Shown here is a 491-nucleotide RNA sequence from Arabidopsis lyrata, a member of the family "Group I catalytic intron". Rfam links the family to the GO term Group I intron splicing. Lineage of the source: Eukaryota > Streptophyta > Mesangiospermae > rosids > Arabidopsis lyrata. The family has 12 seed sequences and 5,602 matches in Rfam 15.1. A reference for the family is Cech (1990), "Self-splicing of group I introns", Annu Rev Biochem.

RNA sequence: CUACGGACUUAAUUGGAUUGAGCCUUGGUAUGGAAACCUACUAAGUGAUAACUUUCAAAUUCAGAGAAACCCUGGAAUUAACAAUGGGCAAUCCUGAGCCAAAUCCUGGUUUACGCGAACAAACCGGAGUUUACAAAGCGCGAAAAAAGGGAUAGGUGCAGAGACUCAAUGGAAGUUGUUCUAACAAAUGGAGUUCACUACCUUGUGUUGAUAAAGGAAUCCUUCGAUCGAAACUUCAAAUCAAAAAGGAUGAAGGAGAAAAACCUAUAUUGUAUAAAUUUAGGUAACACAAAACGAUCUCAAAAAUGACGACCUUAAUCUCGAUUUCUAUUUUUUUAUAAACAAAAUCGAAAUGUUGUGAAUCAAUUCAAAGUUUAAGAAAUAAUAUUUAUUGAUCAAAUGAUUCACUUCAUAGUCUGAUAGAUCCUUGAUGGAACUUAAUUAAUCGGACGAGAAUAAAGAUAGAGUCCCAUUUUACAUGUCAAUACUGA
Numbered sequence: 001c002u003a004c005g006g007a008c009u010u011a012a013u014u015g016g017a018u019u020g021a022g023c024c025u026u027g028g029u030a031u032g033g034a035a036a037c038c039u040a041c042u043a044a045g046u047g048a049u050a051a052c053u054u055u056c057a058a059a060u061u062c063a064g065a066g067a068a069a070c071c072c073u074g075g076a077a078u079u080a081a082c083a084a085u086g087g088g089c090a091a092u093c094c095u096g097a098g099c100c101a102a103a104u105c106c107u108g109g110u111u112u113a114c115g116c117g118a119a120c121a122a123a124c125c126g127g128a129g130u131u132u133a134c135a136a137a138g139c140g141c142g143a144a145a146a147a148a149g150g151g152a153u154a155g156g157u158g159c160a161g162a163g164a165c166u167c168a169a170u171g172g173a174a175g176u177u178g179u180u181c182u183a184a185c186a187a188a189u190g191g192a193g194u195u196c197a198c199u200a201c202c203u204u205g206u207g208u209u210g211a212u213a214a215a216g217g218a219a220u221c222c223u224u225c226g227a228u229c230g231a232a233a234c235u236u237c238a239a240a241u242c243a244a245a246a247a248g249g250a251u252g253a254a255g256g257a258g259a260a261a262a263a264c265c266u267a268u269a270u271u272g273u274a275u276a277a278a279u280u281u282a283g284g285u286a287a288c289a290c291a292a293a294a295c296g297a298u299c300u301c302a303a304a305a306a307u308g309a310c311g312a313c314c315u316u317a318a319u320c321u322c323g324a325u326u327u328c329u330a331u332u333u334u335u336u337u338a339u340a341a342a343c344a345a346a347a348u349c350g351a352a353a354u355g356u357u358g359u360g361a362a363u364c365a366a367u368u369c370a371a372a373g374u375u376u377a378a379g380a381a382a383u384a385a386u387a388u389u390u391a392u393u394g395a396u397c398a399a400a401u402g403a404u405u406c407a408c409u410u411c412a413u414a415g416u417c418u419g420a421u422a423g424a425u426c427c428u429u430g431a432u433g434g435a436a437c438u439u440a441a442u443u444a445a446u447c448g449g450a451c452g453a454g455a456a457u458a459a460a461g462a463u464a465g466a467g468u469c470c471c472a473u474u475u476u477a478c479a480u481g482u483c484a485a486u487a488c489u490g491a
Stems, first nucleotide, its partner, number of pairs: 005024001008022006050177005056171002061097004066092001070088003098157002104151003111145002114142004161470001163469005179456004479486002